Shown here is a 90-nucleotide sequence from Ophiophagus hannah, a member of the family "mir-214 microRNA precursor family". Rfam's curators put it in the seed alignment. The literature on the family includes a 2008 paper in Gene by Shao et al., "Identification of novel chicken microRNAs and analysis of their genomic organization". The organism belongs to Ophiophagus, within Eukaryota. Rfam links the family to the GO terms RISC complex and miRNA-mediated post-transcriptional gene silencing.
RNA sequence: GGAUUGUCAUGUGACUGCCUGUCUGUGCCUGCUGUACAGGUGAGAGGAUGUUCUGCACAGCAAGUGUAGACAGGCAGACACAUGACAACU
Numbered sequence: 001g002g003a004u005u006g007u008c009a010u011g012u013g014a015c016u017g018c019c020u021g022u023c024u025g026u027g028c029c030u031g032c033u034g035u036a037c038a039g040g041u042g043a044g045a046g047g048a049u050g051u052u053c054u055g056c057a058c059a060g061c062a063a064g065u066g067u068a069g070a071c072a073g074g075c076a077g078a079c080a081c082a083u084g085a086c087a088a089c090u
Stems, first nucleotide, its partner, number of pairs: 011081003016076009028064001030062006037055003